[Rfam]
RNA: Plastid-psbl-rps4 3UTR RNA
Organism: Chara braunii
RNA sequence: CGGAAAUAGAGGGAUUCGAACCCUCGGUACGUAUAAUAGCGUACAACGGAUUAG
Numbered sequence: 001c002g003g004a005a006a007u008a009g010a011g012g013g014a015u016u017c018g019a020a021c022c023c024u025c026g027g028u029a030c031g032u033a034u035a036a037u038a039g040c041g042u043a044c045a046a047c048g049g050a051u052u053a054g
Base pairs, nucleotide, nucleotide: 009025010024011023012022013021027044028043029042030041031040032039